The family of this 92-nucleotide RNA sequence from Aureimonas altamirensis is "Glycine riboswitch aptamer".
RNA sequence: ACGCCGCUUGCGGGAGAGACUGGUCUUUAUCGGCCAGCGCCGAAGGAGCAACCGCCCCGGAAUCUCUCAGGCAGAAGGACCGCGCGGCGUUA
Numbered sequence: 001a002c003g004c005c006g007c008u009u010g011c012g013g014g015a016g017a018g019a020c021u022g023g024u025c026u027u028u029a030u031c032g033g034c035c036a037g038c039g040c041c042g043a044a045g046g047a048g049c050a051a052c053c054g055c056c057c058c059g060g061a062a063u064c065u066c067u068c069a070g071g072c073a074g075a076a077g078g079a080c081c082g083c084g085c086g087g088c089g090u091u092a
Stems, first nucleotide, its partner, number of pairs: 007086001009084005020037004039072003042068002046066003052060002

About this RNA
The organism belongs to Aureimonas, within Bacteria. Rfam links the family to the GO term glycine biosynthetic process. This family represents the bacterial glycine riboswitch. Glycine riboswitches usually consist of two metabolite-binding aptamers domains with similar structures in tandem. It scores 67 bits against the family's covariance model.